Overview: Shown here is a 64-nucleotide RNA from Chelydra serpentina, a member of the family "Small nucleolar RNA Z39". The family's RNA type in Rfam is C/D-box small nucleolar RNA. NCBI's taxonomy places the organism under Eukaryota, Opisthokonta, Tetrapoda, Amniota, Chelydra.
RNA sequence: GCACAAAUGAUGGGAACACAAUGGUACGAGAAAAGCAAUGAUACUGUAAAUGCUUUCUGAUGCA
Numbered sequence: 001g002c003a004c005a006a007a008u009g010a011u012g013g014g015a016a017c018a019c020a021a022u023g024g025u026a027c028g029a030g031a032a033a034a035g036c037a038a039u040g041a042u043a044c045u046g047u048a049a050a051u052g053c054u055u056u057c058u059g060a061u062g063c064a
Base pairs, nucleotide, nucleotide: 004062005061012056013055015054017052022046023045024044025043026042

The match comes from Rfam's covariance-model search (42 bits). Gene Ontology terms of the family: nucleolus and RNA processing.